The family of this 76-nucleotide RNA from Elaeis guineensis is "Small nucleolar RNA Z155".
Nucleotides: 076
Stems, first nucleotide, its partner, number of pairs: 001076001003074004
Number, partner (000 for none) and nucleotide at each position: 001076c002000a003074u004073u005072g006071a007000u008000a009000u010000g011000a012000u013000a014000a015000u016000a017000a018000c019000a020000u021000u022000u023000g024000c025000u026000g027000a028000a029000a030000a031000a032000a033000a034000g035000u036000a037000u038000u039000g040000a041000u042000u043000a044000a045000c046000a047000a048000a049000a050000a051000g052000u053000c054000a055000a056000a057000c058000u059000a060000c061000a062000a063000u064000u065000a066000u067000c068000u069000g070000a071006u072005c073004a074003a075000c076001g
It scores 56 bits against the family's covariance model.
The base pairs follow the family's consensus structure.
Rfam classes the family as a C/D-box small nucleolar RNA.